[Rfam]
RNA: Small nucleolar RNA SNORD14
Organism: Rhodamnia argentea
RNA sequence: AAUCAAUGAUGACAAACUCAAAGGCUUGUUUCUCAUAACUUUCGCAGUGGCUGCCUAAGAGCUUUCGCCUUCGCCGGGCUGGAGAGCUAAUGCUGCUACAUUUCCUUCCUUGGAUGUCUGAGACG
Number, nucleotide and partner (000 for none) at each position: 001a000002a000003u123004c122005a000006a000007u000008g000009a000010u000011g000012a000013c000014a000015a000016a000017c000018u000019c000020a000021a000022a000023g000024g000025c000026u000027u000028g000029u000030u000031u000032c000033u000034c000035a000036u000037a000038a000039c000040u000041u000042u000043c000044g000045c000046a000047g000048u000049g000050g000051c000052u000053g000054c000055c000056u000057a000058a000059g000060a000061g087062c086063u085064u084065u083066c082067g000068c000069c000070u000071u000072c000073g000074c000075c000076g000077g000078g000079c000080u000081g000082g066083a065084g064085a063086g062087c061088u000089a000090a000091u000092g000093c000094u000095g000096c000097u000098a000099c000100a000101u000102u000103u000104c000105c000106u000107u000108c000109c000110u000111u000112g000113g000114a000115u000116g000117u000118c000119u000120g000121a000122g004123a003124c000125g000